[Rfam]
Rfam assigns this 84-nucleotide sequence from Ceratodon purpureus to the family "Small nucleolar RNA Z102/R77". For this family Rfam cites "The high diversity of snoRNAs in plants: identification and comparative study of 120 snoRNA genes from Oryza sativa" (Chen et al., Nucleic Acids Res, 2003). Its family is annotated with nucleolus and RNA processing in the Gene Ontology. Clan: SNORD44 clan. The family's RNA type in Rfam is C/D-box small nucleolar RNA. Taxonomically the source falls in Ceratodon (Eukaryota, Viridiplantae, Streptophyta, Bryophyta).

RNA sequence: GAGUGAAGUGAUGAACUAUUGUUUCCCUAUUGGUUUGACAGCCGCUAUGAUGGCAUCUUAUUGCUUCAAACUUGCUGAUCACUC
Numbered sequence: 001g002a003g004u005g006a007a008g009u010g011a012u013g014a015a016c017u018a019u020u021g022u023u024u025c026c027c028u029a030u031u032g033g034u035u036u037g038a039c040a041g042c043c044g045c046u047a048u049g050a051u052g053g054c055a056u057c058u059u060a061u062u063g064c065u066u067c068a069a070a071c072u073u074g075c076u077g078a079u080c081a082c083u084c
Stems, first nucleotide, its partner, number of pairs: 002083004037057001041054003